[Rfam]
Background:
This 77-nucleotide RNA from Xanthomonas oryzae belongs to the Rfam family "Xanthomonas sRNA sX9". The family's consensus secondary structure was predicted with RNAalifold. It is annotated as a small RNA.

RNA sequence: AUGUACCACACUCGUACCCUGUGGUCCCUGCGCGCGAUCCAAGCCACAUGACGACGGCCCGCGACGUUCUGUUAGCC
Numbered sequence: 001a002u003g004u005a006c007c008a009c010a011c012u013c014g015u016a017c018c019c020u021g022u023g024g025u026c027c028c029u030g031c032g033c034g035c036g037a038u039c040c041a042a043g044c045c046a047c048a049u050g051a052c053g054a055c056g057g058c059c060c061g062c063g064a065c066g067u068u069c070u071g072u073u074a075g076c077c
Base pairs, nucleotide, nucleotide: 003017004016005015006014022037024035025034027032049074050073051072052071053070
Dot-bracket structure: ..((((.......))))....(.((.(....).)).)...........(((((................)))))...